[Rfam]
RNA sequence: CUCUUAUUAAGAGAGGUGGAGGGACGUGCCCUAUGAAGCCCGGCAACCAUCAGUUAUGUAACUGAAGUGGUGCCAAUUCACUCAAAAUGCUCAGGCAUUUUGAAAGAUGAGAG
Numbered sequence: 001c002u003c004u005u006a007u008u009a010a011g012a013g014a015g016g017u018g019g020a021g022g023g024a025c026g027u028g029c030c031c032u033a034u035g036a037a038g039c040c041c042g043g044c045a046a047c048c049a050u051c052a053g054u055u056a057u058g059u060a061a062c063u064g065a066a067g068u069g070g071u072g073c074c075a076a077u078u079c080a081c082u083c084a085a086a087a088u089g090c091u092c093a094g095g096c097a098u099u100u101u102g103a104a105a106g107a108u109g110a111g112a113g
Base pairs, nucleotide, nucleotide: 001113002112003111004110005109006108007107008106013041015040016039017038021031022030023029026081027080028079042074043073044072045071047070048069050065051064052063078105083102084101085100086099087098088097